RNA: Singlet oxygen resistance RNA X
Organism: Aliiruegeria lutimaris
RNA sequence: AUCCCCUUGUCGCGUCGGGGUUAUGGCGUGGCAACCUCCCUGUUGGACUGGCCCGGGCGUUUCGCCCGGGUUUUUUU
Dot-bracket structure: .......(((((((((........))))))))).................((((((((.....))))))))......